The family of this 149-nucleotide sequence is "EFASI RNA".
RNA sequence: UCAACACGACAUCGAUGGCGACACCAGGAAACUGGUGUGUGGAGGUAGACUGAUGUAAAUCAGCCCGGCAUAAGCCGCGAACAGGUCUGAGACCUGGGGAGCCUCGCAAGAACUCAACAUUUCGCGCCCCGAUGCACAGAUGUCUGUUG
Number, nucleotide and partner (000 for none) at each position: 001u000002c149003a148004a147005c146006a000007c000008g144009a143010c142011a141012u140013c139014g000015a000016u000017g000018g000019c041020g040021a038022c037023a036024c035025c034026a033027g000028g000029a000030a000031a000032c000033u026034g025035g024036u023037g022038u021039g000040u020041g019042g105043a104044g103045g102046u000047a000048g000049a000050c063051u062052g061053a060054u059055g000056u000057a000058a000059a054060u053061c052062a051063g050064c000065c000066c000067g000068g000069c000070a000071u000072a000073a000074g000075c000076c000077g000078c000079g000080a000081a000082c097083a095084g094085g093086u092087c091088u000089g000090a000091g087092a086093c085094c084095u083096g000097g082098g000099g000100a000101g000102c045103c044104u043105c042106g000107c000108a000109a000110g000111a000112a000113c000114u000115c000116a000117a000118c000119a000120u000121u000122u000123c000124g000125c000126g000127c000128c000129c000130c000131g000132a000133u000134g000135c000136a000137c000138a000139g013140a012141u011142g010143u009144c008145u000146g005147u004148u003149g002